RNA sequence: UGAAAGUAGCAGUACAAAAAUAAGGGUGGCAUUGAUAUGGUAUUGCCACCCUUAUUUCUGUACUGCUGCUGCUGGCA
Numbered sequence: 001u002g003a004a005a006g007u008a009g010c011a012g013u014a015c016a017a018a019a020a021u022a023a024g025g026g027u028g029g030c031a032u033u034g035a036u037a038u039g040g041u042a043u044u045g046c047c048a049c050c051c052u053u054a055u056u057u058c059u060g061u062a063c064u065g066c067u068g069c070u071g072c073u074g075g076c077a
Base pairs, nucleotide, nucleotide: 001077002076005073006072007071008067009066010065011064012063013062014061015060017057019056020055021054022053023052024051025050026049
Shown here is a 77-nucleotide sequence from Pelodiscus sinensis, a member of the family "mir-16 microRNA precursor family". Pairs were carried over by alignment from the consensus structure, which was predicted with PFOLD. It scores 37 bits against the family's covariance model.